[Rfam]
RNA sequence: AUGAAAUUCUCCAUGAGACUGAUAAAUGUUGCAAUUUGGAGAGAGGGCUUUCAGACUCGAAAGUCAUCUCUCCAAAUUCAGAAUACAGCCUAACGGUGCUUAGCUUGAGCUUCAUCCAAAUCCGGGCAUGGCAGAAGUAUGGUUGGCUGAGGCCUAGAAAUCACCGGCAAGUCACAGAACGGCAAUGGACUCUGAUAGGAGUCUU
Numbered sequence: 001a002u003g004a005a006a007u008u009c010u011c012c013a014u015g016a017g018a019c020u021g022a023u024a025a026a027u028g029u030u031g032c033a034a035u036u037u038g039g040a041g042a043g044a045g046g047g048c049u050u051u052c053a054g055a056c057u058c059g060a061a062a063g064u065c066a067u068c069u070c071u072c073c074a075a076a077u078u079c080a081g082a083a084u085a086c087a088g089c090c091u092a093a094c095g096g097u098g099c100u101u102a103g104c105u106u107g108a109g110c111u112u113c114a115u116c117c118a119a120a121u122c123c124g125g126g127c128a129u130g131g132c133a134g135a136a137g138u139a140u141g142g143u144u145g146g147c148u149g150a151g152g153c154c155u156a157g158a159a160a161u162c163a164c165c166g167g168c169a170a171g172u173c174a175c176a177g178a179a180c181g182g183c184a185a186u187g188g189a190c191u192c193u194g195a196u197a198g199g200a201g202u203c204u205u
Base pairs, nucleotide, nucleotide: 038073039072040071041070042069043068044067088164099152100151101150188203189202190201191200192199
A member of the RNA family "Early nodulin 40" from Camellia sinensis, 205 nucleotides long. Rfam classes the family as a non-coding RNA gene. The match comes from Rfam's covariance-model search (60 bits). Rfam 15.1 lists 341 matches to the family in 193 species. The organism belongs to Camellia, within Eukaryota. Gene Ontology term of the family: nodulation.